The record is a 127-nucleotide sequence from Novispirillum itersonii, which matches "Glycine riboswitch aptamer" in Rfam. Rfam 15.1 lists 9,425 matches to the family in 5,228 species. A search with the family's covariance model found it, with a score of 40 bits.
RNA sequence: CCUCUGGAAAGCAGUGCUGUCUGGUUACAGACCGGCACUCACCGAAGAAGUAAACGCCGGAUCCCCGAGUCCCUGAGUGGGCUCCGUCAGGAGACCGGCGUGAAUCUUUCAGGUCGUGAGACAGAGG
Numbered sequence: 001c002c003u004c005u006g007g008a009a010a011g012c013a014g015u016g017c018u019g020u021c022u023g024g025u026u027a028c029a030g031a032c033c034g035g036c037a038c039u040c041a042c043c044g045a046a047g048a049a050g051u052a053a054a055c056g057c058c059g060g061a062u063c064c065c066c067g068a069g070u071c072c073c074u075g076a077g078u079g080g081g082c083u084c085c086g087u088c089a090g091g092a093g094a095c096c097g098g099c100g101u102g103a104a105u106c107u108u109u110c111a112g113g114u115c116g117u118g119a120g121a122c123a124g125a126g127g
Stems, first nucleotide, its partner, number of pairs: 001127006013039007041114003044110002048108003054101007